RNA sequence: AUUUGAUGCCUCUAGGGUUCCGAUCUGAUUUGAGGGAUGUCUGGUCCAAGAGAGGCAAGCUACUUCUGAAGCGUUUGCAGUUAGGGGUGGUUGCACGGCGGGAUAAAAGCCCGGGAGAA
Numbered sequence: 001a002u003u004u005g006a007u008g009c010c011u012c013u014a015g016g017g018u019u020c021c022g023a024u025c026u027g028a029u030u031u032g033a034g035g036g037a038u039g040u041c042u043g044g045u046c047c048a049a050g051a052g053a054g055g056c057a058a059g060c061u062a063c064u065u066c067u068g069a070a071g072c073g074u075u076u077g078c079a080g081u082u083a084g085g086g087g088u089g090g091u092u093g094c095a096c097g098g099c100g101g102g103a104u105a106a107a108a109g110c111c112c113g114g115g116a117g118a119a
Base pairs, nucleotide, nucleotide: 007057008056009055010054011053012052015047016046020044021043022041023038024037025036026035058092059091060090061089062088063087064086065085066084067083068082069081094114096117100112101111102110
RNA: Guanidine-I riboswitch aptamer